U1 spliceosomal RNA: a 163-nucleotide RNA sequence from Diceros bicornis. The source organism's lineage runs through Eukaryota, Metazoa, Eumetazoa, Dipnotetrapodomorpha and Diceros bicornis. From the family's description: U1 is a small nuclear RNA (snRNA) component of the spliceosome (involved in pre-mRNA splicing). Its 5' end forms complementary base pairs with the 5' splice junction, thus defining the 5' donor site of an intron. There are significant differences in sequence and secondary structure between metazoan and yeast U1 snRNAs, the latter being much longer (568 nucleotides as compared to 164 nucleotides in human). Nevertheless, secondary structure predictions suggest that all U1 snRNAs share a 'common core' consisting of helices I, II, the proximal region of III, and IV. This family does not contain the larger yeast sequences. The literature on the family includes a 1994 paper in Nature by Oubridge et al., "Crystal structure at 1.92 A resolution of the RNA-binding domain of the U1A spliceosomal protein complexed with an RNA hairpin". The match comes from Rfam's covariance-model search (91 bits).
RNA sequence: ACACUUACCGGACAGCGGAGAUACCAUCAUCACAAAAGUGGUUUUCCCAUGAGCGAGGCUCGACUAUUGCACUCGGGCCAUGCUGACCCCUGCGGUUUCCCCACGUGUGGGAAAUUUGAUUGUGGGAUUUCUCCUAGUGGGAGACUGCGUUCGCCUUCUCCCC
Numbered sequence: 001a002c003a004c005u006u007a008c009c010g011g012a013c014a015g016c017g018g019a020g021a022u023a024c025c026a027u028c029a030u031c032a033c034a035a036a037a038g039u040g041g042u043u044u045u046c047c048c049a050u051g052a053g054c055g056a057g058g059c060u061c062g063a064c065u066a067u068u069g070c071a072c073u074c075g076g077g078c079c080a081u082g083c084u085g086a087c088c089c090c091u092g093c094g095g096u097u098u099c100c101c102c103a104c105g106u107g108u109g110g111g112a113a114a115u116u117u118g119a120u121u122g123u124g125g126g127a128u129u130u131c132u133c134c135u136a137g138u139g140g141g142a143g144a145c146u147g148c149g150u151u152c153g154c155c156u157u158c159u160c161c162c163c
Base pairs, nucleotide, nucleotide: 012123013122014121015120017047018046019045020044021043023042024041025040026039027038049091051090053088055087057084058083059082062079064077065076093118094117095116096114097113098112100110101109139162140161141160142159143158144157147154148153
Dot-bracket structure: ...........((((.(((((.(((((..........)))))))))).(.(.(.(.(((..(.((..........)).)..)))..)).)).((((((.((.......)).))).))).))))...............((((((..((....))..)))))).